RNA: mir-551 microRNA precursor family
Organism: Ornithorhynchus anatinus
RNA sequence: UGGCCCCAGAAAUCAAGGAUGGGUGAGACCUCUUGCACAAGUGGAAGGCGACCCAUACUUGGUUUCAGGGGCUU
Numbered sequence: 001u002g003g004c005c006c007c008a009g010a011a012a013u014c015a016a017g018g019a020u021g022g023g024u025g026a027g028a029c030c031u032c033u034u035g036c037a038c039a040a041g042u043g044g045a046a047g048g049c050g051a052c053c054c055a056u057a058c059u060u061g062g063u064u065u066c067a068g069g070g071g072c073u074u
Stems, first nucleotide, its partner, number of pairs: 002073006009066006016059002021054004029048003